[Rfam]
RNA sequence: AGGCCUGGAGAGAGAAGCAGGGUCUGAUCUGCAGCCUCCGUGGCAGCUGCUGAUCAGUCCUUGCCUCUCUCUCUCUCCG
Numbered sequence: 001a002g003g004c005c006u007g008g009a010g011a012g013a014g015a016a017g018c019a020g021g022g023u024c025u026g027a028u029c030u031g032c033a034g035c036c037u038c039c040g041u042g043g044c045a046g047c048u049g050c051u052g053a054u055c056a057g058u059c060c061u062u063g064c065c066u067c068u069c070u071c072u073c074u075c076u077c078c079g
Stems, first nucleotide, its partner, number of pairs: 008073008017064004022059001024057006032049004
Dot-bracket structure: .......((((((((.((((.(.((((((..((((..........))))..)))))).).)))).))))))))......